The family of this 330-nucleotide RNA sequence from Rhodoferax sediminis is "Bacterial RNase P class A". It is annotated as a ribozyme. On this family, see Frank and Pace, Annu Rev Biochem 1998: "Ribonuclease P: unity and diversity in a tRNA processing ribozyme". Gene Ontology terms of the family: dimeric ribonuclease P complex, ribonuclease P activity and tRNA processing. Ribonuclease P (RNase P) is a ubiquitous endoribonuclease, found in archaea, bacteria and eukarya as well as chloroplasts and mitochondria. It scores 210 bits against the family's covariance model. Taxonomically the source falls in Rhodoferax (Bacteria, Pseudomonadati, Pseudomonadota, Comamonadaceae).
[Rfam]
RNA sequence: GAAGCCCGCCAGACCGCCGCUGGUGCAUGUCUCGAAAGAGCGCACUGGAGGAACGUCCGGACUGCACAGGGCAGCGUAGCAGGUAACUCCUGUCCACCGUGAGGUGAGGAUCAGAGCAACAGAGACGAGCCGGUUAAGUCCGGGUGAAACGGGCAAUCUCUACGCGCAGCAAUACCAAGUAGGCCAGCGUUGAUGUGGCUCCGCAGAGCUGGCGGGUAGGUAGCAUCGAGCCGGGUGGGCGACCCCCGGCCCAGAGUAAUGGCGGUCACGCCGGGGUUUUCGCAAGAAAGCGCCGGCGCACAGAAUCCGGCUUAUCGGCGGGCUUCACAC
Numbered sequence: 001g002a003a004g005c006c007c008g009c010c011a012g013a014c015c016g017c018c019g020c021u022g023g024u025g026c027a028u029g030u031c032u033c034g035a036a037a038g039a040g041c042g043c044a045c046u047g048g049a050g051g052a053a054c055g056u057c058c059g060g061a062c063u064g065c066a067c068a069g070g071g072c073a074g075c076g077u078a079g080c081a082g083g084u085a086a087c088u089c090c091u092g093u094c095c096a097c098c099g100u101g102a103g104g105u106g107a108g109g110a111u112c113a114g115a116g117c118a119a120c121a122g123a124g125a126c127g128a129g130c131c132g133g134u135u136a137a138g139u140c141c142g143g144g145u146g147a148a149a150c151g152g153g154c155a156a157u158c159u160c161u162a163c164g165c166g167c168a169g170c171a172a173u174a175c176c177a178a179g180u181a182g183g184c185c186a187g188c189g190u191u192g193a194u195g196u197g198g199c200u201c202c203g204c205a206g207a208g209c210u211g212g213c214g215g216g217u218a219g220g221u222a223g224c225a226u227c228g229a230g231c232c233g234g235g236u237g238g239g240c241g242a243c244c245c246c247c248g249g250c251c252c253a254g255a256g257u258a259a260u261g262g263c264g265g266u267c268a269c270g271c272c273g274g275g276g277u278u279u280u281c282g283c284a285a286g287a288a289a290g291c292g293c294c295g296g297c298g299c300a301c302a303g304a305a306u307c308c309g310g311c312u313u314a315u316c317g318g319c320g321g322g323c324u325u326c327a328c329a330c
Stems, first nucleotide, its partner, number of pairs: 001326010011315001012267007020048007028040001053313001055311001057310005062169004069201004074165005079093005094108001095106004109160002114158002116154002130143004173222004183213006194205004230250006237244002